[Rfam]
RNA sequence: CCCCAAUGAUUCCUGUCAGGACCCCUUCUCGAUUUUCUUACGGAGGUUUGUCUGUUACAACAUUGGGAGAGUAACCGCCAUGCUCGACUGUCGGCAGCGUUCUGCUGUUUGGCUAGAUUGGUGACCGUUCUGGUCACCGUCAUGAGAAGGUAUUGGGUCGAAUUGAGUUGAAGGCUCCUAUGUCCACUUCGGACGAGUUUACAGGAGUCUUCGUAGUUAUGACCCACACAUUU
Numbered sequence: 001c002c003c004c005a006a007u008g009a010u011u012c013c014u015g016u017c018a019g020g021a022c023c024c025c026u027u028c029u030c031g032a033u034u035u036u037c038u039u040a041c042g043g044a045g046g047u048u049u050g051u052c053u054g055u056u057a058c059a060a061c062a063u064u065g066g067g068a069g070a071g072u073a074a075c076c077g078c079c080a081u082g083c084u085c086g087a088c089u090g091u092c093g094g095c096a097g098c099g100u101u102c103u104g105c106u107g108u109u110u111g112g113c114u115a116g117a118u119u120g121g122u123g124a125c126c127g128u129u130c131u132g133g134u135c136a137c138c139g140u141c142a143u144g145a146g147a148a149g150g151u152a153u154u155g156g157g158u159c160g161a162a163u164u165g166a167g168u169u170g171a172a173g174g175c176u177c178c179u180a181u182g183u184c185c186a187c188u189u190c191g192g193a194c195g196a197g198u199u200u201a202c203a204g205g206a207g208u209c210u211u212c213g214u215a216g217u218u219a220u221g222a223c224c225c226a227c228a229c230a231u232u233u
Stems, first nucleotide, its partner, number of pairs: 003066005019053004024046005077151003081147001083146001087114001093109006120138008154226003158222003169213005175207004181195005
The family of this 233-nucleotide sequence from Cordyceps fumosorosea is "Small nucleolar RNA snR191". On this family, see Badis et al., RNA 2003: "A snoRNA that guides the two most conserved pseudouridine modifications within rRNA confers a growth advantage in yeast". It is annotated as an H/ACA-box small nucleolar RNA. Lineage of the source: Eukaryota > Opisthokonta > Dikarya > sordariomyceta > Cordyceps fumosorosea.